Description
The family of this 130-nucleotide sequence from Pantherophis guttatus is "Small nucleolar RNA SNORA69". Rfam 15.1 lists 808 matches to the family in 584 species. The family's RNA type in Rfam is H/ACA-box small nucleolar RNA. Gene Ontology terms of the family: nucleolus and RNA processing.
RNA sequence: GAAGCAGGUAGCAAUUGCAGGGUUCCUUUACAUGGAAACACUGCCAUAUUCCUGCUGAGAGCAAUUCUGUUACGUGGGUUUUGAUUUCUCCUGCAUCCUGGUGAAAUUAGCCUCCUUUUAACAGUGACAG
Numbered sequence: 001g002a003a004g005c006a007g008g009u010a011g012c013a014a015u016u017g018c019a020g021g022g023u024u025c026c027u028u029u030a031c032a033u034g035g036a037a038a039c040a041c042u043g044c045c046a047u048a049u050u051c052c053u054g055c056u057g058a059g060a061g062c063a064a065u066u067c068u069g070u071u072a073c074g075u076g077g078g079u080u081u082u083g084a085u086u087u088c089u090c091c092u093g094c095a096u097c098c099u100g101g102u103g104a105a106a107u108u109a110g111c112c113u114c115c116u117u118u119u120a121a122c123a124g125u126g127a128c129a130g
Stems, first nucleotide, its partner, number of pairs: 003056006018043003022039003026035001067124006074117001076115001082109007090101002093098001
Overview
Taxonomically the source falls in Pantherophis (Eukaryota, Craniata, Bifurcata, Episquamata).